[Rfam]
RNA: mir-15 microRNA precursor family
RNA sequence: CCUUGGACUGCUAUAGCAGCACAUCAUGGUUUGCAUGGUAUAGCCAAGAUGCGAAUCAUUAUUUGCUGCUUUAGAAAUUUAAGG
Numbered sequence: 001c002c003u004u005g006g007a008c009u010g011c012u013a014u015a016g017c018a019g020c021a022c023a024u025c026a027u028g029g030u031u032u033g034c035a036u037g038g039u040a041u042a043g044c045c046a047a048g049a050u051g052c053g054a055a056u057c058a059u060u061a062u063u064u065g066c067u068g069c070u071u072u073a074g075a076a077a078u079u080u081a082a083g084g
Base pairs, nucleotide, nucleotide: 001084002083003082004081005080006079013072015070016069017068018067019066020065021064023062024061026059027058028057029056030055031054032053033052034051035050036049